chrB-b RNA: a 50-nucleotide sequence. By type it is a cis-regulatory element. Pairs were carried over by alignment from the consensus structure, which is taken from published work.
[Rfam]
RNA sequence: CGGGGAUGUCGCAGCCUCUCCGUCAGAUGGCGAUCUCAUUCAAGCGCUGC
Numbered sequence: 001c002g003g004g005g006a007u008g009u010c011g012c013a014g015c016c017u018c019u020c021c022g023u024c025a026g027a028u029g030g031c032g033a034u035c036u037c038a039u040u041c042a043a044g045c046g047c048u049g050c
Stems, first nucleotide, its partner, number of pairs: 001022006011050005026040005
Dot-bracket structure: ((((((....[[[[[.))))))...(((((.....))))).....]]]]]